[Rfam]
RNA sequence: GGGUAAUCCGUGGCCGGCUCUAGUUCAACUAAAUGAACUAAGUUUCAUUUUUGAGAUCUCAAAAAUGAAACUUAGUUCAUUUAGUUGAAUUAGAGCCGGCCAUGGAUUACCC
Numbered sequence: 001g002g003g004u005a006a007u008c009c010g011u012g013g014c015c016g017g018c019u020c021u022a023g024u025u026c027a028a029c030u031a032a033a034u035g036a037a038c039u040a041a042g043u044u045u046c047a048u049u050u051u052u053g054a055g056a057u058c059u060c061a062a063a064a065a066u067g068a069a070a071c072u073u074a075g076u077u078c079a080u081u082u083a084g085u086u087g088a089a090u091u092a093g094a095g096c097c098g099g100c101c102a103u104g105g106a107u108u109a110c111c112c
Stems, first nucleotide, its partner, number of pairs: 001112008010103003014099034049064006
Shown here is a 112-nucleotide sequence from Oryza meyeriana, a member of the family "MIR2863 microRNA precursor family". The base pairs follow the family's consensus structure, which was predicted with RNAalifold. NCBI's taxonomy places the organism under Eukaryota, Streptophytina, Magnoliopsida, Oryzinae, Oryza meyeriana.